[Rfam]
RNA: c-di-GMP-I-GGC riboswitch aptamer
Organism: Sphingobium vermicomposti
RNA sequence: GACCGAAAAGGCAAACUGUCGGCGACGACAGGACGCAAAACCUCCGGUCUCUGGUUGAGAUAGCGGGGUUACCGAAA
Numbered sequence: 001g002a003c004c005g006a007a008a009a010g011g012c013a014a015a016c017u018g019u020c021g022g023c024g025a026c027g028a029c030a031g032g033a034c035g036c037a038a039a040a041c042c043u044c045c046g047g048u049c050u051c052u053g054g055u056u057g058a059g060a061u062a063g064c065g066g067g068g069u070u071a072c073c074g075a076a077a
Base pairs, nucleotide, nucleotide: 003074011036012035016031017030018029019028020027021026034063039070040069041068042067044066045065046064047061048060049059